RNA sequence: UUUGAGGGGAAUGUUGUCUGGCUCGAGGACGCUUUCUUCUCGAUCUAAUGCAAAUUUGUGGUCAUGGAUUGUAAAGUAUUCUCGGACCAGGCUUCAUUCCCCCCAAU
Numbered sequence: 001u002u003u004g005a006g007g008g009g010a011a012u013g014u015u016g017u018c019u020g021g022c023u024c025g026a027g028g029a030c031g032c033u034u035u036c037u038u039c040u041c042g043a044u045c046u047a048a049u050g051c052a053a054a055u056u057u058g059u060g061g062u063c064a065u066g067g068a069u070u071g072u073a074a075a076g077u078a079u080u081c082u083c084g085g086a087c088c089a090g091g092c093u094u095c096a097u098u099c100c101c102c103c104c105a106a107u
Stems, first nucleotide, its partner, number of pairs: 002106003006102008016092006024084003
Dot-bracket structure: .(((.((((((((..((((((..(((.......................................................)))..))))))..)))))))).))).
RNA: mir-166 microRNA precursor family